[Rfam]
Annotation:
The family of this 47-nucleotide RNA is "L31-Actinobacteria ribosomal protein leader". The family's RNA type in Rfam is cis-regulatory leader. The match comes from Rfam's covariance-model search (57 bits). A reference for the family is Eckert and Weinberg (2020), "Discovery of 20 novel ribosomal leader candidates in bacteria and archaea", BMC Microbiol.

RNA sequence: UCGGCCCCGGUUCACGCACGCGCAGCCCGCACGUGCGACCCGGCGCC
Numbered sequence: 001u002c003g004g005c006c007c008c009g010g011u012u013c014a015c016g017c018a019c020g021c022g023c024a025g026c027c028c029g030c031a032c033g034u035g036c037g038a039c040c041c042g043g044c045g046c047c
Stems, first nucleotide, its partner, number of pairs: 003047003007043004015037006022030002